[Rfam]
RNA sequence: UCAAAGCUGAUUUUGAAACUUAAAAAAAAAAUCGCCAGGUACCAUGCAAAAGCAAUCUUCCCUUUAGAAUGACUGAUGGUAUGCUAAGGUUUUUCAUGGCAUAUUAUUAUUAAAGGUGAAUACAAAU
Numbered sequence: 001u002c003a004a005a006g007c008u009g010a011u012u013u014u015g016a017a018a019c020u021u022a023a024a025a026a027a028a029a030a031a032u033c034g035c036c037a038g039g040u041a042c043c044a045u046g047c048a049a050a051a052g053c054a055a056u057c058u059u060c061c062c063u064u065u066a067g068a069a070u071g072a073c074u075g076a077u078g079g080u081a082u083g084c085u086a087a088g089g090u091u092u093u094u095c096a097u098g099g100c101a102u103a104u105u106a107u108u109a110u111u112a113a114a115g116g117u118g119a120a121u122a123c124a125a126a127u
Stems, first nucleotide, its partner, number of pairs: 008034006058120003061116007074109013
Small nucleolar RNA SNORA15: a 127-nucleotide RNA from Nomascus leucogenys. Rfam classes the family as an H/ACA-box small nucleolar RNA. The literature on the family includes a 2001 paper in EMBO J by Huttenhofer et al., "RNomics: an experimental approach that identifies 201 candidates for novel, small, non-messenger RNAs in mouse". From the family's description: ACA15 is a member of the H/ACA class of snoRNA that guide the sites of modification of uridines to pseudouridines. Taxonomically the source falls in Nomascus (Eukaryota, Bilateria, Primates, Haplorrhini). The family has 22 seed sequences and 974 matches in Rfam 15.1.